[Rfam]
RNA sequence: GGUCUGUGAUGAAUAGUAAAAGGUCUGAUUAUCCUAAGACUUGCACUCCCAUGACCUCUUCUCCCAGCAGUUUCUCACCAGUCACGGCACAGUAAUGGUGUGGCUGGCAGAGUGUUUGCUGACAGCUUGUGAUGUGUUCAGUUCAUGUUAACCCGAAGUAUUGGAGACAUGACUGGGAUCAGCAUCCAACAGUCUUACUUGAAGGAGUUUGGGGUCUUGGAUUGUUAUAACUGGACAUGUGAUAUGACUUUUCUGCUGAGACC
Numbered sequence: 001g002g003u004c005u006g007u008g009a010u011g012a013a014u015a016g017u018a019a020a021a022g023g024u025c026u027g028a029u030u031a032u033c034c035u036a037a038g039a040c041u042u043g044c045a046c047u048c049c050c051a052u053g054a055c056c057u058c059u060u061c062u063c064c065c066a067g068c069a070g071u072u073u074c075u076c077a078c079c080a081g082u083c084a085c086g087g088c089a090c091a092g093u094a095a096u097g098g099u100g101u102g103g104c105u106g107g108c109a110g111a112g113u114g115u116u117u118g119c120u121g122a123c124a125g126c127u128u129g130u131g132a133u134g135u136g137u138u139c140a141g142u143u144c145a146u147g148u149u150a151a152c153c154c155g156a157a158g159u160a161u162u163g164g165a166g167a168c169a170u171g172a173c174u175g176g177g178a179u180c181a182g183c184a185u186c187c188a189a190c191a192g193u194c195u196u197a198c199u200u201g202a203a204g205g206a207g208u209u210u211g212g213g214g215u216c217u218u219g220g221a222u223u224g225u226u227a228u229a230a231c232u233g234g235a236c237a238u239g240u241g242a243u244a245u246g247a248c249u250u251u252u253c254u255g256c257u258g259a260g261a262c263c
Stems, first nucleotide, its partner, number of pairs: 001263004035246002038243001040241001047221003051217001053215001061207004065121006078107009129187001131186005144171006152163001
This 263-nucleotide RNA from Gavia stellata belongs to the Rfam family "Small Cajal body specific RNA 6". A search with the family's covariance model found it, with a score of 113 bits. U88 is small Cajal body specific RNA (scaRNA). scaRNAs are a novel class of small nuclear RNAs which localise to the Cajal bodies. U88 is found associated with both fibrillarin and Gar1p and co-localises with coilin in Cajal bodies. Lineage of the source: Eukaryota > Eumetazoa > Sauropsida > Theropoda > Gavia. Pairs were carried over by alignment from the consensus structure, which is taken from published work.